[Rfam]
RNA sequence: CUGACCAGCAGCCAAACCAUUUGUGAGGAUGGGACGGAAAGCCAAGGGUCUCCGAAGGAAAAGAGACAGCCUGGUUGCCAAG
Numbered sequence: 001c002u003g004a005c006c007a008g009c010a011g012c013c014a015a016a017c018c019a020u021u022u023g024u025g026a027g028g029a030u031g032g033g034a035c036g037g038a039a040a041g042c043c044a045a046g047g048g049u050c051u052c053c054g055a056a057g058g059a060a061a062a063g064a065g066a067c068a069g070c071c072u073g074g075u076u077g078c079c080a081a082g
Base pairs, nucleotide, nucleotide: 012037013036017032018031019030020029021028022027040076041075042074043073045072046071047070048067049066050065051064052063